[Rfam]
RNA sequence: UGCCGGCUGUCCAAAAGCCGGGGUUACUGAAGAGGCACACCUUCAUUGCCGGCAGUGCGGUUGGGGUCUCCCAUACCAAAGCUGAGGCAGACAAAGCGCGUAUUCGCCGCAAGGCGGGAACGCAUCGA
Numbered sequence: 001u002g003c004c005g006g007c008u009g010u011c012c013a014a015a016a017g018c019c020g021g022g023g024u025u026a027c028u029g030a031a032g033a034g035g036c037a038c039a040c041c042u043u044c045a046u047u048g049c050c051g052g053c054a055g056u057g058c059g060g061u062u063g064g065g066g067u068c069u070c071c072c073a074u075a076c077c078a079a080a081g082c083u084g085a086g087g088c089a090g091a092c093a094a095a096g097c098g099c100g101u102a103u104u105c106g107c108c109g110c111a112a113g114g115c116g117g118g119a120a121c122g123c124a125u126c127g128a
Stems, first nucleotide, its partner, number of pairs: 001023001003021006034050004057123003082090001099113001101111001103109001
Source information:
A member of the RNA family "speF leader" from Nitratireductor indicus, 128 nucleotides long. The family's consensus secondary structure was predicted with RNAalifold. Rfam's curators write: This family is a putative regulatory RNA structure that is found upstream of the speF gene encoding ornithine decarboxylase in Agrobacterium tumefaciens and other alpha-proteobacteria. For this family Rfam cites "Evidence for a second class of S-adenosylmethionine riboswitches and other regulatory RNA motifs in alpha-proteobacteria" (Corbino et al., Genome Biol, 2005).